[Rfam]
RNA: MIR1435 microRNA precursor family
RNA sequence: UUGACUUUUUUCUGGUCAAACUUUUUUAAGUUUGACCAAGUUUAUAGAAAUUUAUAGCAACAUUUCCAACACAAAACAAACAUAUUACCAAAAUAUAUUCAAUGUCAUAUUUAAUGAAACUAAUUUGGUGUUGUAGAUGCUGCUAAAUUUUCUAUAAACUUGGUUAAACCUAAAAAGUUUGACUAGGAAAGAAGUCAA
Numbered sequence: 001u002u003g004a005c006u007u008u009u010u011u012c013u014g015g016u017c018a019a020a021c022u023u024u025u026u027u028a029a030g031u032u033u034g035a036c037c038a039a040g041u042u043u044a045u046a047g048a049a050a051u052u053u054a055u056a057g058c059a060a061c062a063u064u065u066c067c068a069a070c071a072c073a074a075a076a077c078a079a080a081c082a083u084a085u086u087a088c089c090a091a092a093a094u095a096u097a098u099u100c101a102a103u104g105u106c107a108u109a110u111u112u113a114a115u116g117a118a119a120c121u122a123a124u125u126u127g128g129u130g131u132u133g134u135a136g137a138u139g140c141u142g143c144u145a146a147a148u149u150u151u152c153u154a155u156a157a158a159c160u161u162g163g164u165u166a167a168a169c170c171u172a173a174a175a176a177g178u179u180u181g182a183c184u185a186g187g188a189a190a191g192a193a194g195u196c197a198a
Stems, first nucleotide, its partner, number of pairs: 006192004011187016031168005045154006055145003059141001061139005067133002072127004